[Rfam]
A member of the RNA family "GP20-a RNA", 98 nucleotides long.
RNA sequence: AUAGGUCGAGCAUAAAGACAUAUAAACAAAUGCACAUUCGGCGCAAACUGUAAAGCGCAGUUAUAAAUAACAGAUAUAAAGAAUGUAAAGGAGAGGCG
Numbered sequence: 001a002u003a004g005g006u007c008g009a010g011c012a013u014a015a016a017g018a019c020a021u022a023u024a025a026a027c028a029a030a031u032g033c034a035c036a037u038u039c040g041g042c043g044c045a046a047a048c049u050g051u052a053a054a055g056c057g058c059a060g061u062u063a064u065a066a067a068u069a070a071c072a073g074a075u076a077u078a079a080a081g082a083a084u085g086u087a088a089a090g091g092a093g094a095g096g097c098g
Base pairs, nucleotide, nucleotide: 005019006018007017010033011032012031013030035085036084037083038082039081041058042057043056044055
Rfam classes the family as a cis-regulatory element.